RNA sequence: CAAUGAUAUGGCUCUUUUAGAAUUUGUCCAGCAGAUUUUCAAGUCCUUACUGGAAGACUCCCA
Numbered sequence: 001c002a003a004u005g006a007u008a009u010g011g012c013u014c015u016u017u018u019a020g021a022a023u024u025u026g027u028c029c030a031g032c033a034g035a036u037u038u039u040c041a042a043g044u045c046c047u048u049a050c051u052g053g054a055a056g057a058c059u060c061c062c063a
Base pairs, nucleotide, nucleotide: 034060035059037056038055039054040053042051043050044049
RNA: U7 small nuclear RNA